[Rfam]
RNA sequence: GCAUGGAUGAAUUCUGCACUAGCUUUCCUCGGUAGCUAAUGCAGUCAGACACCGUGCCAGAGCAAAUUCCUUUUUCACUGUGCCUGGUGUGCUUUCUUAUGGGAAUGGGCAUGCCCUUGGAAGGGGAAUACACAA
Numbered sequence: 001g002c003a004u005g006g007a008u009g010a011a012u013u014c015u016g017c018a019c020u021a022g023c024u025u026u027c028c029u030c031g032g033u034a035g036c037u038a039a040u041g042c043a044g045u046c047a048g049a050c051a052c053c054g055u056g057c058c059a060g061a062g063c064a065a066a067u068u069c070c071u072u073u074u075u076c077a078c079u080g081u082g083c084c085u086g087g088u089g090u091g092c093u094u095u096c097u098u099a100u101g102g103g104a105a106u107g108g109g110c111a112u113g114c115c116c117u118u119g120g121a122a123g124g125g126g127a128a129u130a131c132a133c134a135a
Base pairs, nucleotide, nucleotide: 001057002056003055004054005053006052014044015043016042017041018040067128068127069126070124073123074122075121076120083119086115087114088113089112090111091110092109093108094107
Small nucleolar RNA SNORA15: a 135-nucleotide RNA from Pardalotus punctatus. Its family is annotated with RNA processing and nucleolus in the Gene Ontology. The literature on the family includes a 2001 paper in EMBO J by Huttenhofer et al., "RNomics: an experimental approach that identifies 201 candidates for novel, small, non-messenger RNAs in mouse". A search with the family's covariance model found it, with a score of 70 bits. The family's consensus secondary structure was predicted with RNAfold. About the family: ACA15 is a member of the H/ACA class of snoRNA that guide the sites of modification of uridines to pseudouridines. Rfam 15.1 lists 974 matches to the family in 624 species.